[Rfam]
The family of this 54-nucleotide RNA from Hucho hucho is "U7 small nuclear RNA". Animal histone pre-mRNAs are spliced by a different mechanism than nuclear pre-mRNAs and self-splicing introns. The base pairs follow the family's consensus structure, which was predicted with PFOLD. NCBI's taxonomy places the organism under Eukaryota, Metazoa, Euteleosteomorpha, Salmonidae, Hucho.
RNA sequence: AAAAGGUGCUCUUUUAGUAUUUGUCCUGUAGGUUUCCUCAAGGAGAAAGCCCCA
Numbered sequence: 001a002a003a004a005g006g007u008g009c010u011c012u013u014u015u016a017g018u019a020u021u022u023g024u025c026c027u028g029u030a031g032g033u034u035u036c037c038u039c040a041a042g043g044a045g046a047a048a049g050c051c052c053c054a
Base pairs, nucleotide, nucleotide: 031051032050033049034048035047037045038044039043